[Rfam]
RNA sequence: GAGUUAUCUAAGGAAAUAGUAGCCGUGAUUUUACCCUCAGAAUCUUUCCCAUAUCACAGUUGCUGUUUCUUUUAGAUAGCUC
Dot-bracket structure: (((((((((((((((((((((((.(((((.......................))))).))))))))))).))))))))))))
Numbered sequence: 001g002a003g004u005u006a007u008c009u010a011a012g013g014a015a016a017u018a019g020u021a022g023c024c025g026u027g028a029u030u031u032u033a034c035c036c037u038c039a040g041a042a043u044c045u046u047u048c049c050c051a052u053a054u055c056a057c058a059g060u061u062g063c064u065g066u067u068u069c070u071u072u073u074a075g076a077u078a079g080c081u082c
Stems, first nucleotide, its partner, number of pairs: 001082012013069011025057005
The family of this 82-nucleotide sequence from Drosophila kikkawai is "mir-994 microRNA precursor family". The family's consensus secondary structure was predicted with RNAalifold. Its family is annotated with miRNA-mediated post-transcriptional gene silencing and RISC complex in the Gene Ontology. Rfam 15.1 lists 18 matches to the family in 18 species.